Rfam assigns this 102-nucleotide RNA sequence from Clostridium senegalense to the family "Purine riboswitch aptamer". Pairs were carried over by alignment from the consensus structure, which is taken from published work. A search with the family's covariance model found it, with a score of 85 bits.

[Rfam]
RNA sequence: UCAAUUAAUAAAUUAUAUAUCCAUAUAUUUUUGGUAAUAUGGACCAAAAGUUUCUACGAGAAGACCGUAAAAUUUCUCACUAUGGGUAAGUCAAGUUUAGAG
Numbered sequence: 001u002c003a004a005u006u007a008a009u010a011a012a013u014u015a016u017a018u019a020u021c022c023a024u025a026u027a028u029u030u031u032u033g034g035u036a037a038u039a040u041g042g043a044c045c046a047a048a049a050g051u052u053u054c055u056a057c058g059a060g061a062a063g064a065c066c067g068u069a070a071a072a073u074u075u076c077u078c079a080c081u082a083u084g085g086g087u088a089a090g091u092c093a094a095g096u097u098u099a100g101a102g
Base pairs, nucleotide, nucleotide: 018088019087020086021085022084023083024082025081029049030048031047032046033045034044035043058078059077060076061075062074063073